Rfam assigns this 549-nucleotide sequence from Pseudothauera nasutitermitis to the family "Bacterial RNase P class A". Pairs were carried over by alignment from the consensus structure, which is taken from published work. The match comes from Rfam's covariance-model search (257 bits).

RNA sequence: GAAGUCCGCCAGGCAAUCGCUGCGCGCCCUCGUGGCGCGUGGAGGAAAGUCCGGGCCCCGCAGAGCAGGAUGCCGGCUAACGGCCGGGCGCCGCGAGGCGACGGAAAGUGCAACAGAGAGCAGACCGCCGAUGGCUUGGGCUUCGCCGCCGACAGGCGGCAAAGUCCCCUUCGUGGAGGAGGUCGCCUUCGGGUGGCGUUUCUUCGCGGAAGGGCUUCGCCGCCGACAGGCGGCAAAGUCCUUUGAAGAGCUUGCUCUUCGAAAAGCACAGGCAAGGGUGAAACGGUGCGGUGGCGCGCGUAAGCGCGUCAGCGGCCAGGGCGAAAGCCUUGGCGGGUAAGAGCCCACCGCGGGACUGGCAACAGGACCGGCACGGCAAACCCCAUCCGGGGCAAGGCCAAAUAGGGGAGCGAUGGCGUGGCUCGCGCUGCUCCCGGGUAGGCUGCUUGAGCGCCGCGGCAACGCGGCGCCCAGAGGAAUGAUUGCCCGGCGCCGCGGACUCCGGUUCGUGGCGUUCGACAGAACCCGGCUUAUCGGCGGACUUCCUUC
Numbered sequence: 001g002a003a004g005u006c007c008g009c010c011a012g013g014c015a016a017u018c019g020c021u022g023c024g025c026g027c028c029c030u031c032g033u034g035g036c037g038c039g040u041g042g043a044g045g046a047a048a049g050u051c052c053g054g055g056c057c058c059c060g061c062a063g064a065g066c067a068g069g070a071u072g073c074c075g076g077c078u079a080a081c082g083g084c085c086g087g088g089c090g091c092c093g094c095g096a097g098g099c100g101a102c103g104g105a106a107a108g109u110g111c112a113a114c115a116g117a118g119a120g121c122a123g124a125c126c127g128c129c130g131a132u133g134g135c136u137u138g139g140g141c142u143u144c145g146c147c148g149c150c151g152a153c154a155g156g157c158g159g160c161a162a163a164g165u166c167c168c169c170u171u172c173g174u175g176g177a178g179g180a181g182g183u184c185g186c187c188u189u190c191g192g193g194u195g196g197c198g199u200u201u202c203u204u205c206g207c208g209g210a211a212g213g214g215c216u217u218c219g220c221c222g223c224c225g226a227c228a229g230g231c232g233g234c235a236a237a238g239u240c241c242u243u244u245g246a247a248g249a250g251c252u253u254g255c256u257c258u259u260c261g262a263a264a265a266g267c268a269c270a271g272g273c274a275a276g277g278g279u280g281a282a283a284c285g286g287u288g289c290g291g292u293g294g295c296g297c298g299c300g301u302a303a304g305c306g307c308g309u310c311a312g313c314g315g316c317c318a319g320g321g322c323g324a325a326a327g328c329c330u331u332g333g334c335g336g337g338u339a340a341g342a343g344c345c346c347a348c349c350g351c352g353g354g355a356c357u358g359g360c361a362a363c364a365g366g367a368c369c370g371g372c373a374c375g376g377c378a379a380a381c382c383c384c385a386u387c388c389g390g391g392g393c394a395a396g397g398c399c400a401a402a403u404a405g406g407g408g409a410g411c412g413a414u415g416g417c418g419u420g421g422c423u424c425g426c427g428c429u430g431c432u433c434c435c436g437g438g439u440a441g442g443c444u445g446c447u448u449g450a451g452c453g454c455c456g457c458g459g460c461a462a463c464g465c466g467g468c469g470c471c472c473a474g475a476g477g478a479a480u481g482a483u484u485g486c487c488c489g490g491c492g493c494c495g496c497g498g499a500c501u502c503c504g505g506u507u508c509g510u511g512g513c514g515u516u517c518g519a520c521a522g523a524a525c526c527c528g529g530c531u532u533a534u535c536g537g538c539g540g541a542c543u544u545c546c547u548u549c
Base pairs, nucleotide, nucleotide: 001545002544003543004542005541006540007539008538009537010536011534012487013486014485015484016483017482018481020042021041022040023039024038025037026036027035028034047532048531049530051529052528053527054526055525056392057391058390059389063424064423065422066421068388069387070386071385072384073087074086075085076084077083088102089100090099091098092097103383104382108381109380110377111376125277126276127273128272129271285349286348287347288346290344350372351370352369353368356365357364358363396444397443398442399441406435407434408433409432410431411430415429416428417427418426419425451470452469453468454467455466456465457464458463